[Rfam]
Rfam assigns this 120-nucleotide RNA from Mesocricetibacter intestinalis to the family "Aggregatibacter sRNA 54". Taxonomically the source falls in Mesocricetibacter (Bacteria, Pseudomonadati, Pseudomonadota, Gammaproteobacteria). Rfam describes the family as follows. Validated by RT-PCR, expression up-regulated during growth. By type it is a small RNA. Pairs were carried over by alignment from the consensus structure, which was predicted with RNAfold.
RNA sequence: GCGUAAUAUGCGCCACGAUUUAGUAACAAGAGGACACACACUUUGGACAGCCACAGUCGAUACCGAUUGAAAUUUGUUUUCUAAAUCUCGCCGACAUUCUGCUUAUCGGUGGGGUUUUGC
Numbered sequence: 001g002c003g004u005a006a007u008a009u010g011c012g013c014c015a016c017g018a019u020u021u022a023g024u025a026a027c028a029a030g031a032g033g034a035c036a037c038a039c040a041c042u043u044u045g046g047a048c049a050g051c052c053a054c055a056g057u058c059g060a061u062a063c064c065g066a067u068u069g070a071a072a073u074u075u076g077u078u079u080u081c082u083a084a085a086u087c088u089c090g091c092c093g094a095c096a097u098u099c100u101g102c103u104u105a106u107c108g109g110u111g112g113g114g115u116u117u118u119g120c
Base pairs, nucleotide, nucleotide: 001013002012003011004010005009026082028080030077032075033074034073043066044065045064046063050061052059083117084116085115086114087113088112089111090110091109092108